A member of the RNA family "SAH (S-adenosyl-L-homocysteine) riboswitch aptamer" from Sideroxydans lithotrophicus, 92 nucleotides long.
RNA sequence: CCCGCCGAGGGGCGCUGCAGCAGUCACCGCAAGGUGAACCUGUCAGGCUCGGCGGAGGUGGCUCAACAAUGUUGCAACGGCGCCCAUUCAUU
Numbered sequence: 001c002c003c004g005c006c007g008a009g010g011g012g013c014g015c016u017g018c019a020g021c022a023g024u025c026a027c028c029g030c031a032a033g034g035u036g037a038a039c040c041u042g043u044c045a046g047g048c049u050c051g052g053c054g055g056a057g058g059u060g061g062c063u064c065a066a067c068a069a070u071g072u073u074g075c076a077a078c079g080g081c082g083c084c085c086a087u088u089c090a091u092u
Base pairs, nucleotide, nucleotide: 002055003054004053005052006051007050008049021042022041023040

Overview:
Lineage of the source: Bacteria > Pseudomonadota > Betaproteobacteria > Nitrosomonadales > Sideroxydans lithotrophicus. The match comes from Rfam's covariance-model search (59 bits).